[Rfam]
RNA sequence: AUCCCACCAUAUUAAGCCAGCCAAUUGUUGCAAUCACGUGCUCAUUCGGUGUUCUCACGGUGGGUAAAUUAAUGACGUUCGUGUGUAGGGAAUUCAGAUCUUCCCUUGAUCGAAUUCCCAAGGACGAAAACUACA
Numbered sequence: 001a002u003c004c005c006a007c008c009a010u011a012u013u014a015a016g017c018c019a020g021c022c023a024a025u026u027g028u029u030g031c032a033a034u035c036a037c038g039u040g041c042u043c044a045u046u047c048g049g050u051g052u053u054c055u056c057a058c059g060g061u062g063g064g065u066a067a068a069u070u071a072a073u074g075a076c077g078u079u080c081g082u083g084u085g086u087a088g089g090g091a092a093u094u095c096a097g098a099u100c101u102u103c104c105c106u107u108g109a110u111c112g113a114a115u116u117c118c119c120a121a122g123g124a125c126g127a128a129a130a131c132u133a134c135a
Stems, first nucleotide, its partner, number of pairs: 020050003024046001026044002078129002088119007097111004
Dot-bracket structure: ...................(((.(.((...............)).).)))...........................((........(((((((..((((.......)))).)))))))........))......
RNA: Small nucleolar RNA snoR639/H1
Organism: Notodromas monacha